Overview:
A member of the RNA family "ALIL pseudoknot" from Palleronia abyssalis, 124 nucleotides long. The organism belongs to Palleronia, within Bacteria.
[Rfam]
RNA sequence: AGCAUGUGUUGCCGCGCAGCGGGACAGAGCUCGACCGCCCGUUCCGCAAAUGACUGCAUUCAUUGAUGAUUUCCGGGAGGAGUUCGGGGUCGAGCCGAUCUGUCGCGUGCUGCCGAUCGCCCCG
Numbered sequence: 001a002g003c004a005u006g007u008g009u010u011g012c013c014g015c016g017c018a019g020c021g022g023g024a025c026a027g028a029g030c031u032c033g034a035c036c037g038c039c040c041g042u043u044c045c046g047c048a049a050a051u052g053a054c055u056g057c058a059u060u061c062a063u064u065g066a067u068g069a070u071u072u073c074c075g076g077g078a079g080g081a082g083u084u085c086g087g088g089g090u091c092g093a094g095c096c097g098a099u100c101u102g103u104c105g106c107g108u109g110c111u112g113c114c115g116a117u118c119g120c121c122c123c124g
Base pairs, nucleotide, nucleotide: 016039019038020037021036022035085124086123087122088121089120096119097118099116100115102113103112105110
By type it is a cis-regulatory element. It scores 77 bits against the family's covariance model. The family's consensus secondary structure is taken from published work. The literature on the family includes a 2008 paper in J Biol Chem by Mazauric et al., "Apical loop-internal loop RNA pseudoknots: a new type of stimulator of -1 translational frameshifting in bacteria".